[Rfam]
RNA sequence: CUUCCCCUGAUGUUGAUGAUACUGCAUCAGGAACUGAAUGGAGAGCGAUGACAGGCCAGCGGUUCCUGAUGCACUGCCUUCAGCAUCGAAAGA
Numbered sequence: 001c002u003u004c005c006c007c008u009g010a011u012g013u014u015g016a017u018g019a020u021a022c023u024g025c026a027u028c029a030g031g032a033a034c035u036g037a038a039u040g041g042a043g044a045g046c047g048a049u050g051a052c053a054g055g056c057c058a059g060c061g062g063u064u065c066c067u068g069a070u071g072c073a074c075u076g077c078c079u080u081c082a083g084c085a086u087c088g089a090a091a092g093a
Stems, first nucleotide, its partner, number of pairs: 023073005029067008039058003